Description:
Shown here is a 175-nucleotide sequence from Candidatus Methylospira mobilis, a member of the family "Group II catalytic intron D1-D4-3".
[Rfam]
RNA sequence: GUCGUCGCGAGGCGGGGUCUGGAGGAAGUCCAAGGCGAAAUCGCGGGGCGAUGAACAAAAACCGGAUAUGAGGCGUGAUACAUUCGGGGCAAGUGGGCACGUGACCAUAAAGCCCUCCAUCUGCGAUAGGGAUGUAUUUUGUAAAUCCGGCGUCUACGCGAGGAAAGUUUCGUGU
Numbered sequence: 001g002u003c004g005u006c007g008c009g010a011g012g013c014g015g016g017g018u019c020u021g022g023a024g025g026a027a028g029u030c031c032a033a034g035g036c037g038a039a040a041u042c043g044c045g046g047g048g049c050g051a052u053g054a055a056c057a058a059a060a061a062c063c064g065g066a067u068a069u070g071a072g073g074c075g076u077g078a079u080a081c082a083u084u085c086g087g088g089g090c091a092a093g094u095g096g097g098c099a100c101g102u103g104a105c106c107a108u109a110a111a112g113c114c115c116u117c118c119a120u121c122u123g124c125g126a127u128a129g130g131g132a133u134g135u136a137u138u139u140u141g142u143a144a145a146u147c148c149g150g151c152g153u154c155u156a157c158g159c160g161a162g163g164a165a166a167g168u169u170u171c172g173u174g175u
Stems, first nucleotide, its partner, number of pairs: 002015005028175002031172001035168002041161005046155005062150006073142003077138007087115004093108004

Lineage of the source: Bacteria > Pseudomonadati > Pseudomonadota > Methylococcales > Candidatus Methylospira. It scores 132 bits against the family's covariance model.